[Rfam]
Rfam assigns this 69-nucleotide RNA from Leptobrachium leishanense to the family "mir-8/mir-141/mir-200 microRNA precursor family". On this family, see Lagos-Quintana et al., Science 2001: "Identification of novel genes coding for small expressed RNAs". The family's consensus secondary structure was predicted with RNAalifold. Gene Ontology terms of the family: miRNA-mediated post-transcriptional gene silencing and RISC complex. Taxonomically the source falls in Leptobrachium (Eukaryota, Chordata, Tetrapoda, Anura). The family is grouped with related families in Rfam's "mir-8 microRNA precursor clan".
RNA sequence: AUGGACAUCUUACUAGACAGUGCUGGAUUUAUUAUACGUCUUCUAACACUGUCUGGUAACGAUGUUUAA
Numbered sequence: 001a002u003g004g005a006c007a008u009c010u011u012a013c014u015a016g017a018c019a020g021u022g023c024u025g026g027a028u029u030u031a032u033u034a035u036a037c038g039u040c041u042u043c044u045a046a047c048a049c050u051g052u053c054u055g056g057u058a059a060c061g062a063u064g065u066u067u068a069a
Stems, first nucleotide, its partner, number of pairs: 002068008010059013024045004